[Rfam]
RNA sequence: GAUAGUGAAAAUGAAAUCUCUCAUAUAAUACUUGGGGAUAUGGCCCAAAAGUUUCUACCCAAUAACCGUAAAUUAUUGGACUAUGAGAGAAAGUAGAUGAACU
Number, nucleotide and partner (000 for none) at each position: 001g000002a000003u000004a000005g000006u000007g000008a000009a000010a000011a000012u000013g000014a000015a000016a000017u000018c089019u088020c087021u086022c085023a084024u083025a082026u000027a000028a000029u050030a000031c000032u048033u047034g046035g045036g044037g000038a000039u000040a000041u000042g000043g000044c036045c035046c034047a033048a032049a000050a029051g000052u000053u000054u000055c000056u000057a000058c000059c079060c078061a077062a076063u075064a074065a073066c000067c000068g000069u000070a000071a000072a000073u065074u064075a063076u062077u061078g060079g059080a000081c000082u025083a024084u023085g022086a021087g020088a019089g018090a000091a000092a000093g000094u000095a000096g000097a000098u000099g000100a000101a000102c000103u000
RNA: Purine riboswitch aptamer
Organism: Bacillus sp. MUM 13